Notes: This 85-nucleotide RNA sequence from Equus caballus belongs to the Rfam family "mir-1271 microRNA precursor family". Lineage of the source: Eukaryota > Opisthokonta > Deuterostomia > Euteleostomi > Equus.
[Rfam]
RNA sequence: UAGGACAGCGUUUGGCACAUGACAAGCACUCAAAAUAGCACUGAUCAGUUAUUGAGCGCUUAAUGUGUGCCAGGCCCUGUUUUAA
Numbered sequence: 001u002a003g004g005a006c007a008g009c010g011u012u013u014g015g016c017a018c019a020u021g022a023c024a025a026g027c028a029c030u031c032a033a034a035a036u037a038g039c040a041c042u043g044a045u046c047a048g049u050u051a052u053u054g055a056g057c058g059c060u061u062a063a064u065g066u067g068u069g070c071c072a073g074g075c076c077c078u079g080u081u082u083u084a085a
Stems, first nucleotide, its partner, number of pairs: 002083002006079003010075009020065002024061001026059002029056005042051002